[Rfam]
RNA: let-7 microRNA precursor family
Organism: Rhipicephalus sanguineus
RNA sequence: CUGAAGUGAGGUAGUAGGUUGUAUAGUUCAGAACUACAUCUGCCAAGGAGAGCUAACUGUACAACUUGCUAACUUUCUUCGG
Dot-bracket structure: ((((((.(((.((((((((((((((((.((((......)))).(.......)...)))))))))))))))).))).))))))